[Rfam]
RNA: mir-1175 microRNA precursor family
Organism: Brassicogethes aeneus
RNA sequence: CAAAGUAGGUGGAGAAGUUUUAUCUUCACUUUGAUUUAAAAUAGUGAGAUUCAACUCCUCCAACUUGUUUUU
Numbered sequence: 001c002a003a004a005g006u007a008g009g010u011g012g013a014g015a016a017g018u019u020u021u022a023u024c025u026u027c028a029c030u031u032u033g034a035u036u037u038a039a040a041a042u043a044g045u046g047a048g049a050u051u052c053a054a055c056u057c058c059u060c061c062a063a064c065u066u067g068u069u070u071u072u
Stems, first nucleotide, its partner, number of pairs: 007066003010062005017056001018054001023049002026047005